[Rfam]
RNA sequence: CCUUGACAUACAAGGCGGCGGCUAUGCGUGAGAGUUAGGCUCACGGUUCGGGCUAGUGAAUACCCGUAGCAG
Dot-bracket structure: (((((.....))))).....((((..((((((.......)))))).....................))))..
Rfam assigns this 72-nucleotide RNA to the family "RAGATH-16 RNA". The sequence is in the family's curated seed alignment.